RNA: S-element
Organism: Shinella sp. WSJ-2
RNA sequence: CGUCAAGAGUCUUUGGCACCGUUUCGGUGAUCGAAUUUCUUUUGCCUUGUGAGAGGUAGAAGGUGAUG
Numbered sequence: 001c002g003u004c005a006a007g008a009g010u011c012u013u014u015g016g017c018a019c020c021g022u023u024u025c026g027g028u029g030a031u032c033g034a035a036u037u038u039c040u041u042u043u044g045c046c047u048u049g050u051g052a053g054a055g056g057u058a059g060a061a062g063g064u065g066a067u068g
Stems, first nucleotide, its partner, number of pairs: 009064006018057003022054005029047001032044004